[Rfam]
RNA sequence: UCACUGACAACGGUGGAGUUUGAAGGAAGCUGAAGGGGGAACUUGGAACAUAGCGAAAGCGAACCGGGGUUGGCCGAUCAGGGGGUAACCCUGCAUAUUAGGGAAAGCCCGACAGCUGGACAACCUGAUAGGUUAGGACGGAUGAAUUCUUUUUUUUUUGU
Numbered sequence: 001u002c003a004c005u006g007a008c009a010a011c012g013g014u015g016g017a018g019u020u021u022g023a024a025g026g027a028a029g030c031u032g033a034a035g036g037g038g039g040a041a042c043u044u045g046g047a048a049c050a051u052a053g054c055g056a057a058a059g060c061g062a063a064c065c066g067g068g069g070u071u072g073g074c075c076g077a078u079c080a081g082g083g084g085g086u087a088a089c090c091c092u093g094c095a096u097a098u099u100a101g102g103g104a105a106a107g108c109c110c111g112a113c114a115g116c117u118g119g120a121c122a123a124c125c126u127g128a129u130a131g132g133u134u135a136g137g138a139c140g141g142a143u144g145a146a147u148u149c150u151u152u153u154u155u156u157u158u159u160g161u
Base pairs, nucleotide, nucleotide: 001016002015003014004013005012006011031160032159033158036155037154041153045149046148049144050143051142064141065140066139073133074132075131077129078128079127080126081125082124083110084109085108086107089103090102091101092100
Annotation: This 161-nucleotide RNA sequence from Desulfotomaculum nigrificans belongs to the Rfam family "Group II catalytic intron D1-D4-3". A search with the family's covariance model found it, with a score of 47 bits. Group II introns are found in rRNA, tRNA and mRNA of organelles in fungi, plants and protists, and also in mRNA in bacteria. The source organism's lineage runs through Bacteria, Bacillati, Bacillota, Desulfotomaculaceae and Desulfotomaculum nigrificans. The pairing is the family consensus, mapped onto this sequence.